mir-34 microRNA precursor family: a 69-nucleotide RNA sequence from Anabas testudineus. The family has 113 seed sequences and 2,256 matches in Rfam 15.1. The base pairs follow the family's consensus structure, which was predicted with RNAalifold. Its Rfam clan is "mir-34 clan". The match comes from Rfam's covariance-model search (63 bits). Its family is annotated with miRNA-mediated post-transcriptional gene silencing and RISC complex in the Gene Ontology. NCBI's taxonomy places the organism under Eukaryota, Gnathostomata, Actinopterygii, Anabantiformes, Anabas.
Nucleotides: 069
Base pairs, nucleotide, nucleotide: 002068003067004066005065009061010060012058013057014056015055016054018052019051020050021049022048024047025046026045027044028043029042031040
Number, partner (000 for none) and nucleotide at each position: 001000g002068u003067u004066g005065u006000g007000c008000a009061g010060g011000c012058a013057g014056u015055g016054u017000u018052g019051u020050u021049a022048g023000c024047u025046g026045a027044u028043u029042g030000u031040u032000u033000a034000a035000a036000a037000c038000a039000c040031a041000c042029c043028a044027a045026u046025c047024a048022c049021u050020a051019a052018c053000u054016a055015c056014a057013c058012u059000a060010c061009c062000a063000g064000a065005a066004c067003a068002a069000c